[Rfam]
RNA sequence: UGGUCAUUACAAGGCUUUUAAGAAUGCAGUUUCUCACUUGCUGUAGACAUGACCAUAAAAAUAUACGCCCACUAGGCUUUUUGUGUGCUACUUUGCUAGCAGUCAACCUGUUAGAAACAUUU
Numbered sequence: 001u002g003g004u005c006a007u008u009a010c011a012a013g014g015c016u017u018u019u020a021a022g023a024a025u026g027c028a029g030u031u032u033c034u035c036a037c038u039u040g041c042u043g044u045a046g047a048c049a050u051g052a053c054c055a056u057a058a059a060a061a062u063a064u065a066c067g068c069c070c071a072c073u074a075g076g077c078u079u080u081u082u083g084u085g086u087g088c089u090a091c092u093u094u095g096c097u098a099g100c101a102g103u104c105a106a107c108c109u110g111u112u113a114g115a116a117a118c119a120u121u122u
Stems, first nucleotide, its partner, number of pairs: 003053005010046001012044001026041004069114001071112001075108002078105001086101003
Small nucleolar RNA SNORA32: a 122-nucleotide RNA from Nannospalax galili. It scores 105 bits against the family's covariance model. The source organism's lineage runs through Eukaryota, Metazoa, Glires, Muroidea and Nannospalax. Rfam links the family to the GO terms RNA processing and nucleolus. The family's consensus secondary structure was predicted with RNAfold.